[Rfam]
Nucleotides: 091
Stems, first nucleotide, its partner, number of pairs: 008081001010079004015074002018071001020069007028061002031058003035054002038051001
Number, partner (000 for none) and nucleotide at each position: 001000c002000c003000c004000a005000a006000a007000c008081c009000c010079u011078a012077g013076g014000u015074c016073u017000g018071c019000u020069g021068a022067c023066u024065c025064c026063u027000a028061g029060u030000c031058c032057a033056g034000g035054g036053c037000u038051u039000g040000u041000g042000a043000u044000a045000g046000c047000u048000g049000g050000u051038g052000u053036g054035c055000c056033c057032u058031g059000a060029a061028u062000g063026g064025g065024g066023a067022g068021u069020c070000u071018g072000g073016a074015g075000g076013c077012c078011u079010g080000u081008g082000u083000u084000u085000g086000a087000a088000u089000a090000u091000c